[Rfam]
RNA: tRNA
RNA sequence: GCGAGGGUGGCGGAAUUGGCAGACGCGCUAGACUUAGGAUCUAGUGUCUAUGACGUGAGGGUUCAAGUCCCUCCCUUCGCA
Numbered sequence: 001g002c003g004a005g006g007g008u009g010g011c012g013g014a015a016u017u018g019g020c021a022g023a024c025g026c027g028c029u030a031g032a033c034u035u036a037g038g039a040u041c042u043a044g045u046g047u048c049u050a051u052g053a054c055g056u057g058a059g060g061g062u063u064c065a066a067g068u069c070c071c072u073c074c075c076u077u078c079g080c081a
Base pairs, nucleotide, nucleotide: 001080002079003078004077005076006075007074010026011025012024028044029043030042031041032040057073058072059071060070061069